Notes: The family of this 97-nucleotide RNA sequence from Mannheimia varigena is "Glycine riboswitch aptamer". Rfam describes the family as follows. This family represents the bacterial glycine riboswitch. Pairs were carried over by alignment from the consensus structure.
RNA sequence: GGACGAACCCUUGGAGAGAGCUGAUGAAAAAUCAGCCGCCGAAGGCGAAAAUGCAACAAUGCGUGAAACGCUCAGGCAAAAGGACAGGGGAGAAAAG
Dot-bracket structure: .......((((((......((((.........)))).(((((..(((...((..........))....))))).))).......)))))).......